RNA sequence: CGCGCGGUGUACUCCCACUCGGCCUCGGCGCCGGUCAGCACCUCGUCGCCGAAGUGCUCGCCGUCGGCCAUGGUGUCGAGCACGGUCUGGGCGCCGUACUCGCCGCGCCCGAUCUUCUGCACCUUGCCGUGGGCGAUGAGGAAGACCUCGUCGGCCCGGUUGCCCGACUCGACGAGCGCCUCGCCGGGCUGGUACUCGCGCUGCUGGAACCGCUCGGCCAGCGCGACCAGCACGUCGUCGUCGGGGAAAUCGCGCAGCAGGGGGAGUUCCCGCAGCUCCUGCGGGAUGACCCGGAUGUCGGCGCCGGUGCUGAUGAAGCUCACCCGCCCGUCGCCGACGGCGUAGGUCAGGCGGCGGUUCACCCGGUAGGUGCCCGCCUGGGUCGCGACCCAGGGCAGCUUCCGCAGCAGCCACCGCGGUGAGAUGCCCUGCAUCUGCGGGGUCGACUUGGUCGUGCUGGCGAGGUUCCGCGCCGCGGCGGUGCCCAGGCUCUGCCGCUGGUGCUCGGCCU
Numbered sequence: 001c002g003c004g005c006g007g008u009g010u011a012c013u014c015c016c017a018c019u020c021g022g023c024c025u026c027g028g029c030g031c032c033g034g035u036c037a038g039c040a041c042c043u044c045g046u047c048g049c050c051g052a053a054g055u056g057c058u059c060g061c062c063g064u065c066g067g068c069c070a071u072g073g074u075g076u077c078g079a080g081c082a083c084g085g086u087c088u089g090g091g092c093g094c095c096g097u098a099c100u101c102g103c104c105g106c107g108c109c110c111g112a113u114c115u116u117c118u119g120c121a122c123c124u125u126g127c128c129g130u131g132g133g134c135g136a137u138g139a140g141g142a143a144g145a146c147c148u149c150g151u152c153g154g155c156c157c158g159g160u161u162g163c164c165c166g167a168c169u170c171g172a173c174g175a176g177c178g179c180c181u182c183g184c185c186g187g188g189c190u191g192g193u194a195c196u197c198g199c200g201c202u203g204c205u206g207g208a209a210c211c212g213c214u215c216g217g218c219c220a221g222c223g224c225g226a227c228c229a230g231c232a233c234g235u236c237g238u239c240g241u242c243g244g245g246g247a248a249a250u251c252g253c254g255c256a257g258c259a260g261g262g263g264g265a266g267u268u269c270c271c272g273c274a275g276c277u278c279c280u281g282c283g284g285g286a287u288g289a290c291c292c293g294g295a296u297g298u299c300g301g302c303g304c305c306g307g308u309g310c311u312g313a314u315g316a317a318g319c320u321c322a323c324c325c326g327c328c329c330g331u332c333g334c335c336g337a338c339g340g341c342g343u344a345g346g347u348c349a350g351g352c353g354g355c356g357g358u359u360c361a362c363c364c365g366g367u368a369g370g371u372g373c374c375c376g377c378c379u380g381g382g383u384c385g386c387g388a389c390c391c392a393g394g395g396c397a398g399c400u401u402c403c404g405c406a407g408c409a410g411c412c413a414c415c416g417c418g419g420u421g422a423g424a425u426g427c428c429c430u431g432c433a434u435c436u437g438c439g440g441g442g443u444c445g446a447c448u449u450g451g452u453c454g455u456g457c458u459g460g461c462g463a464g465g466u467u468c469c470g471c472g473c474c475g476c477g478g479c480g481g482u483g484c485c486c487a488g489g490c491u492c493u494g495c496c497g498c499u500g501g502u503g504c505u506c507g508g509c510c511u
Base pairs, nucleotide, nucleotide: 006390007389008388010387012385015382016381021325022324025322027320028319029318032315035313036312037311038310039309040308041307042306045305047303048302049301050300051299052298054233055232057230058229060227062225063224064223065111066110067109075103077102078101079100080099082097083096084095085094086093117221118220119219122217123216126213127212129210130209132205133204134203135202138199140197143196144195149192154189155188156187157186158185159184160183161178162177165174166173234296235295236294240290241289242288243287251281252280254278256277257276258275260271261270262269329342330341331340332339353378354377355376356375357374360372361371362370363369391431392430393429394428395427396426397425399423400422401421403418404417405416407415437476438475439474440473442471443470445468446467447465448464449463451461452460477510478509480505481504482503484501485500486497488495
Saccharopolyspora sRNA 350: a 511-nucleotide RNA sequence from Saccharothrix syringae.
Rfam links the family to the GO term regulation of secondary metabolite biosynthetic process.
The family's RNA type in Rfam is antisense RNA.
Rfam 15.1 lists 1,170 matches to the family in 705 species.
NCBI's taxonomy places the organism under Bacteria, Bacillati, Actinomycetota, Actinomycetes, Saccharothrix.
It scores 269 bits against the family's covariance model.
For this family Rfam cites "Prediction and characterization of small non-coding RNAs related to secondary metabolites in Saccharopolyspora erythraea" (Liu et al., PLoS One, 2013).